[Rfam]
RNA sequence: AGCGGCUCAACGGCCUGUCCAUGGUGGAAGGCAAAUAUUACUCGCUGAUUUCAGGAGCAUUGAUUUAUGCGUA
Number, nucleotide and partner (000 for none) at each position: 001a000002g000003c000004g000005g000006c000007u000008c000009a000010a000011c000012g000013g032014c031015c030016u029017g000018u028019c027020c026021a000022u000023g000024g000025u000026g020027g019028a018029a016030g015031g014032c013033a000034a000035a000036u000037a000038u062039u000040a000041c057042u056043c055044g000045c054046u053047g052048a000049u000050u000051u000052c047053a046054g045055g043056a042057g041058c000059a000060u000061u000062g038063a000064u000065u000066u000067a000068u000069g000070c000071g000072u000073a000
Rfam assigns this 73-nucleotide RNA from Enterobacteriaceae bacterium RIT714 to the family "Repression of heat shock gene expression (ROSE) element". Pairs were carried over by alignment from the consensus structure, which is taken from published work. The match comes from Rfam's covariance-model search (72 bits). The organism belongs to Enterobacteriaceae, within Bacteria. Gene Ontology terms of the family: response to temperature stimulus and regulation of translation. This family represents a 5' UTR cis-regulatory element found in heat shock mRNAs and is known as the ROSE (repression of heat shock gene expression) element.